[Rfam]
RNA sequence: UAAUGAAGGAAGCAUGGUAAUGUGCACAUAAAUUGAUUUAUUGAUUUGGGUCUUUAGGCCUGCCCUCUCUGAUGUCAUUUGGUUUUGAUUUGGGGGCAUGGUUCCGCAGCAAAACA
Numbered sequence: 001u002a003a004u005g006a007a008g009g010a011a012g013c014a015u016g017g018u019a020a021u022g023u024g025c026a027c028a029u030a031a032a033u034u035g036a037u038u039u040a041u042u043g044a045u046u047u048g049g050g051u052c053u054u055u056a057g058g059c060c061u062g063c064c065c066u067c068u069c070u071g072a073u074g075u076c077a078u079u080u081g082g083u084u085u086u087g088a089u090u091u092g093g094g095g096g097c098a099u100g101g102u103u104c105c106g107c108a109g110c111a112a113a114a115c116a
Base pairs, nucleotide, nucleotide: 012025013024014023015022048099050097051096052095058089060087062083063082064081
This 116-nucleotide RNA sequence from Rhododendron williamsianum belongs to the Rfam family "Small nucleolar RNA snoR100". By type it is an H/ACA-box small nucleolar RNA. The base pairs follow the family's consensus structure, which was predicted with WAR. It scores 92 bits against the family's covariance model. The source organism's lineage runs through Eukaryota, Embryophyta, Tracheophyta, Ericoideae and Rhododendron. For this family Rfam cites "Experimental RNomics: identification of 140 candidates for small non-messenger RNAs in the plant Arabidopsis thaliana" (Marker et al., Curr Biol, 2002).